[Rfam]
RNA sequence: GCCUCUUUUGAGGCGCUAUCUGUGUGUUAAUAGCUACGUUCUUUGGCCGAACGUGGUGGUUAGUGAAUC
Numbered sequence: 001g002c003c004u005c006u007u008u009u010g011a012g013g014c015g016c017u018a019u020c021u022g023u024g025u026g027u028u029a030a031u032a033g034c035u036a037c038g039u040u041c042u043u044u045g046g047c048c049g050a051a052c053g054u055g056g057u058g059g060u061u062a063g064u065g066a067a068u069c
Base pairs, nucleotide, nucleotide: 001014002013003012027063028062029061030060031059033057034056035055036054037053038052039051040050041049

A member of the RNA family "L13-Bacteroidia ribosomal protein leader" from Alloprevotella sp. Lung230, 69 nucleotides long. On this family, see Eckert and Weinberg, BMC Microbiol 2020: "Discovery of 20 novel ribosomal leader candidates in bacteria and archaea". A search with the family's covariance model found it, with a score of 59 bits.